[Rfam]
RNA: c-di-AMP riboswitch aptamer (ydaO/yuaA leader)
Organism: Streptomyces sp. IB201691-2A2
RNA sequence: GCCCGGAAUCCGCUCACCCACCCGUACACGGCAGGAGCGGGGGACCCACAGGUACAACGCCUGUUCCGGUCUCCGGAACGGCUAGGGGUUAAGUCGUGCGCAAACACGGCCGGGCAUCUCCAGCUCGCACCCGACAGCUCACCUCGCAGGCGCCGGAGAGGAAUUCG
Numbered sequence: 001g002c003c004c005g006g007a008a009u010c011c012g013c014u015c016a017c018c019c020a021c022c023c024g025u026a027c028a029c030g031g032c033a034g035g036a037g038c039g040g041g042g043g044a045c046c047c048a049c050a051g052g053u054a055c056a057a058c059g060c061c062u063g064u065u066c067c068g069g070u071c072u073c074c075g076g077a078a079c080g081g082c083u084a085g086g087g088g089u090u091a092a093g094u095c096g097u098g099c100g101c102a103a104a105c106a107c108g109g110c111c112g113g114g115c116a117u118c119u120c121c122a123g124c125u126c127g128c129a130c131c132c133g134a135c136a137g138c139u140c141a142c143c144u145c146g147c148a149g150g151c152g153c154c155g156g157a158g159a160g161g162a163a164u165u166c167g
Base pairs, nucleotide, nucleotide: 001151002150003149009036010035011034037147038146039145040144041143042142047085086132087131088130094109095108096107097106112126113125114124115123